[Rfam]
RNA sequence: UUGGUGGUGAGGAGUAAAGUGAAAGGAAAACGCGUUUGGGGUCGAAACACGGCCAGACUCCCAGGCGCUUUUCCUUUU
Number, nucleotide and partner (000 for none) at each position: 001u000002u000003g000004g000005u000006g000007g000008u000009g000010a000011g000012g000013a000014g000015u000016a000017a000018a000019g000020u000021g000022a000023a000024a000025g074026g073027a072028a071029a070030a000031c000032g000033c067034g066035u000036u000037u000038g062039g061040g060041g058042u057043c056044g000045a000046a000047a000048c000049a000050c000051g000052g000053c000054c000055a000056g043057a042058c041059u000060c040061c039062c038063a000064g000065g000066c034067g033068c000069u000070u029071u028072u027073c026074c025075u000076u000077u000078u000

Background: Shown here is a 78-nucleotide sequence from Roseofilum reptotaenium, a member of the family "Cyano-1 RNA". The base pairs follow the family's consensus structure, which is taken from published work. A search with the family's covariance model found it, with a score of 42 bits.